[Rfam]
RNA sequence: GCGGGUGUGGUGAAAUUGGCAGACACGUUAGAUUUAGGUUCUAAUGCCGUAAGGUGUGCAGGUUCAAGUCCUGUCACCCGCA
Numbered sequence: 001g002c003g004g005g006u007g008u009g010g011u012g013a014a015a016u017u018g019g020c021a022g023a024c025a026c027g028u029u030a031g032a033u034u035u036a037g038g039u040u041c042u043a044a045u046g047c048c049g050u051a052a053g054g055u056g057u058g059c060a061g062g063u064u065c066a067a068g069u070c071c072u073g074u075c076a077c078c079c080g081c082a
Stems, first nucleotide, its partner, number of pairs: 001081007010026003028044005058074005
This 82-nucleotide RNA sequence from Ruminococcus flavefaciens belongs to the Rfam family "tRNA". Lineage of the source: Bacteria > Eubacteriales > Oscillospiraceae > Ruminococcus > Ruminococcus flavefaciens. Pairs were carried over by alignment from the consensus structure, which is taken from published work.